[Rfam]
RNA: rydB RNA
Organism: Pantoea sp. At-9b
RNA sequence: GCCCCUUCAAGAGCUAAGCCAUUAUGAGUGCCGGAGAUAAGCGCCGGGUGGGGCAUAAACU
Numbered sequence: 001g002c003c004c005c006u007u008c009a010a011g012a013g014c015u016a017a018g019c020c021a022u023u024a025u026g027a028g029u030g031c032c033g034g035a036g037a038u039a040a041g042c043g044c045c046g047g048g049u050g051g052g053g054c055a056u057a058a059a060c061u
Base pairs, nucleotide, nucleotide: 002053003052004051005050013029014028015027031047032046033045034044036042